[Rfam]
RNA: Streptomyces RNA 6106
Organism: Streptomyces sp. RB17
RNA sequence: ACGCGGGUUCGCGUCCGCGGGCUUAACGGGCCCAUGAGGUGGGGGUGGUGCCGUGUCGGCGCAGCACCACCCCCACCGG
Numbered sequence: 001a002c003g004c005g006g007g008u009u010c011g012c013g014u015c016c017g018c019g020g021g022c023u024u025a026a027c028g029g030g031c032c033c034a035u036g037a038g039g040u041g042g043g044g045g046u047g048g049u050g051c052c053g054u055g056u057c058g059g060c061g062c063a064g065c066a067c068c069a070c071c072c073c074c075a076c077c078g079g
Base pairs, nucleotide, nucleotide: 001014002013003012004011005010016036017035019033020032022030023029039076040075041074042073043072044071045070046069047068048067049066050065051064053062054061055060